[Rfam]
RNA sequence: GCGCCCGUGGAAGCGCCUGAUCCGGUUCGCCGGAUGACGAGGACGGGGAGGAUCGAGUUUCGGCGGAUGCCCCGGGGCGUGGAAGCGCGCCCUCAACCGCCGCUCCAAAUCCCGGGAGCGAUCCCGGGGACAAAGGCGGCGGAGCUUCGUUU
Number, nucleotide and partner (000 for none) at each position: 001g000002c000003g000004c000005c000006c000007g000008u000009g000010g000011a000012a000013g000014c000015g000016c000017c000018u000019g000020a035021u034022c033023c032024g031025g030026u000027u000028c000029g000030c025031c024032g023033g022034a021035u020036g000037a000038c000039g000040a000041g000042g000043a000044c074045g073046g072047g071048g070049a000050g000051g000052a000053u063054c062055g061056a060057g000058u000059u000060u056061c055062g054063g053064c000065g000066g000067a000068u000069g000070c048071c047072c046073c045074g044075g092076g091077g090078c089079g088080u087081g000082g000083a000084a000085g000086c000087g080088c079089g078090c077091c076092c075093u000094c000095a000096a000097c142098c141099g140100c139101c138102g137103c136104u000105c000106c000107a000108a000109a000110u000111c128112c127113c126114g125115g124116g123117a122118g000119c000120g000121a000122u117123c116124c115125c114126g113127g112128g111129g000130a000131c000132a000133a000134a000135g000136g103137c102138g101139g100140c099141g098142g097143a000144g000145c000146u000147u000148c000149g000150u000151u000152u000
The record is a 152-nucleotide RNA from Aminomonas paucivorans, which matches "glmS glucosamine-6-phosphate activated ribozyme aptamer" in Rfam.
The organism belongs to Aminomonas paucivorans, within Bacteria.
From the family's description: This entry contains a glucosamine-6-phosphate activated ribozyme that is found in the mRNA for GlmS. GlmS is an enzyme that uses fructose-6-phosphate and glutamine to generate glucosamine-6-phosphate.